This 73-nucleotide RNA from Aquihabitans sp. G128 belongs to the Rfam family "tRNA".
RNA sequence: GGUCGGGUAGCUCAGUUGGCAGAGCGAUCGCCUGAAAAGCGAUAGGUCACCGGAUCGACGCCGGUUCCGACCA
Number, nucleotide and partner (000 for none) at each position: 001g072002g071003u070004c069005g068006g067007g066008u000009a000010g025011c024012u023013c022014a000015g000016u000017u000018g000019g000020c000021a000022g013023a012024g011025c010026g000027a043028u042029c041030g040031c039032c000033u000034g000035a000036a000037a000038a000039g031040c030041g029042a028043u027044a000045g000046g000047u000048c000049a065050c064051c063052g062053g061054a000055u000056c000057g000058a000059c000060g000061c053062c052063g051064g050065u049066u007067c006068c005069g004070a003071c002072c001073a000
The organism belongs to Aquihabitans, within Bacteria. The base pairs follow the family's consensus structure, which is taken from published work. Rfam classes the family as a transfer RNA.